Rfam assigns this 79-nucleotide RNA sequence from Aegilops tauschii to the family "Small nucleolar RNA Z199". The organism belongs to Aegilops tauschii, within Eukaryota.
RNA sequence: GGUUCAAGACAUGAUGAGAAACUACAACAAUAUCACAGGAGUUACACUCCUGUGAUUUGUAGUUUAAAGUCUGAUGAUU
Numbered sequence: 001g002g003u004u005c006a007a008g009a010c011a012u013g014a015u016g017a018g019a020a021a022c023u024a025c026a027a028c029a030a031u032a033u034c035a036c037a038g039g040a041g042u043u044a045c046a047c048u049c050c051u052g053u054g055a056u057u058u059g060u061a062g063u064u065u066a067a068a069g070u071c072u073g074a075u076g077a078u079u
Stems, first nucleotide, its partner, number of pairs: 001079002004077003037051005
Rfam 15.1 lists 953 matches to the family in 222 species. Its family is annotated with RNA processing and nucleolus in the Gene Ontology. The match comes from Rfam's covariance-model search (50 bits). Rfam classes the family as a C/D-box small nucleolar RNA.